[Rfam]
RNA sequence: ACACACACUGAGUGGUCAGAUUAUUAUUAUCUCUGAACACAUAAUAAUCUGGCCACUCAGUGUGUGU
Number, nucleotide and partner (000 for none) at each position: 001a000002c000003a000004c064005a063006c062007a061008c060009u059010g058011a057012g056013u055014g054015g053016u052017c051018a000019g049020a048021u047022u046023a045024u044025u043026a042027u041028u000029a000030u000031c000032u000033c000034u000035g000036a000037a000038c000039a000040c000041a027042u026043a025044a024045u023046a022047a021048u020049c019050u000051g017052g016053c015054c014055a013056c012057u011058c010059a009060g008061u007062g006063u005064g004065u000066g000067u000
The record is a 67-nucleotide RNA from Pipistrellus kuhlii, which matches "mir-9256 microRNA precursor family" in Rfam. Its family is annotated with RISC complex and miRNA-mediated post-transcriptional gene silencing in the Gene Ontology. The family's consensus secondary structure was predicted with RNAalifold.